[Rfam]
RNA sequence: CGCGGUCCUCGGUAGUGAUUCCCGGGAGCGAAAUCGGUGACGAUUUGCCCGUGGAUCUCGAUCGAUGACCGGG
Numbered sequence: 001c002g003c004g005g006u007c008c009u010c011g012g013u014a015g016u017g018a019u020u021c022c023c024g025g026g027a028g029c030g031a032a033a034u035c036g037g038u039g040a041c042g043a044u045u046u047g048c049c050c051g052u053g054g055a056u057c058u059c060g061a062u063c064g065a066u067g068a069c070c071g072g073g
Base pairs, nucleotide, nucleotide: 001073003071004070005069006068007067009065010064011063012062013061017057018056019055020054021053023051024050025049026048029047030046031045